[Rfam]
RNA: glmS glucosamine-6-phosphate activated ribozyme aptamer
Organism: Paenibacillus sedimenti
RNA sequence: CAAGUAACAAUAGCGCCAGAACUCGCAAGCGGGACGGAAAAGUAUGAUACUGCGCGAACGAGUUGACGAGGUGAAGGUGUUCGAAACAUUCGGCGGGGACCUUCCGGUAAGAAGCUAGAGUACCGUUAAGUUGGAAGGCAAAAACGCUCGGGCGACCGGGCUGACAAGAUUCCAACAUGCUAGCAA
Numbered sequence: 001c002a003a004g005u006a007a008c009a010a011u012a013g014c015g016c017c018a019g020a021a022c023u024c025g026c027a028a029g030c031g032g033g034a035c036g037g038a039a040a041a042g043u044a045u046g047a048u049a050c051u052g053c054g055c056g057a058a059c060g061a062g063u064u065g066a067c068g069a070g071g072u073g074a075a076g077g078u079g080u081u082c083g084a085a086a087c088a089u090u091c092g093g094c095g096g097g098g099a100c101c102u103u104c105c106g107g108u109a110a111g112a113a114g115c116u117a118g119a120g121u122a123c124c125g126u127u128a129a130g131u132u133g134g135a136a137g138g139c140a141a142a143a144a145c146g147c148u149c150g151g152g153c154g155a156c157c158g159g160g161c162u163g164a165c166a167a168g169a170u171u172c173c174a175a176c177a178u179g180c181u182a183g184c185a186a
Stems, first nucleotide, its partner, number of pairs: 020064006029055003073104005081093004105125005130176007144162001146161006
Dot-bracket structure: ...................((((((...(((.....................)))...))))))........(((((...((((.....))))......)))))(((((...........)))))....(((((((.......(.((((((....))))))).......)))))))..........